int-alpA RNA: a 67-nucleotide sequence from Thiobacillus denitrificans. The family's consensus secondary structure is taken from published work. It is one of the family's seed sequences. The source organism's lineage runs through Bacteria, Pseudomonadati, Nitrosomonadales, Thiobacillus and Thiobacillus denitrificans. Rfam's curators write: Acidobacteria (1 example), Planctomycetes (1 example), Proteobacteria.

RNA sequence: GCCACCCAUAGCCUGGCCAGGCGAAAAGCGGACACCUUCACCGCCUGGGGUGGCACCUUCUUGAAGG
Numbered sequence: 001g002c003c004a005c006c007c008a009u010a011g012c013c014u015g016g017c018c019a020g021g022c023g024a025a026a027a028g029c030g031g032a033c034a035c036c037u038u039c040a041c042c043g044c045c046u047g048g049g050g051u052g053g054c055a056c057c058u059u060c061u062u063g064a065a066g067g
Stems, first nucleotide, its partner, number of pairs: 001054007011022004028044004035067006